RNA sequence: GAUGCCGGGCCUGCCGGCACCACGGACGCAGCUCCUCUGCUGUGCCCGUGACAUUGGGGCAGAGAGGAAGUGGCUAUUUCUACGCUCAGUGCUCAGAACAGUGAGCACUAAGAAUGGUUUGUAGCCGAACAGGC
Numbered sequence: 001g002a003u004g005c006c007g008g009g010c011c012u013g014c015c016g017g018c019a020c021c022a023c024g025g026a027c028g029c030a031g032c033u034c035c036u037c038u039g040c041u042g043u044g045c046c047c048g049u050g051a052c053a054u055u056g057g058g059g060c061a062g063a064g065a066g067g068a069a070g071u072g073g074c075u076a077u078u079u080c081u082a083c084g085c086u087c088a089g090u091g092c093u094c095a096g097a098a099c100a101g102u103g104a105g106c107a108c109u110a111a112g113a114a115u116g117g118u119u120u121g122u123a124g125c126c127g128a129a130c131a132g133g134c
Base pairs, nucleotide, nucleotide: 003061004060005059006058007055008054022049023048024047025046072126073125074124080117081116082115085112086111090107091106092105093104094103095102
Dot-bracket structure: ..((((((.............((((....................))))....))..))))..........(((.....(((..((...((((((......))))))...))..)))......)))........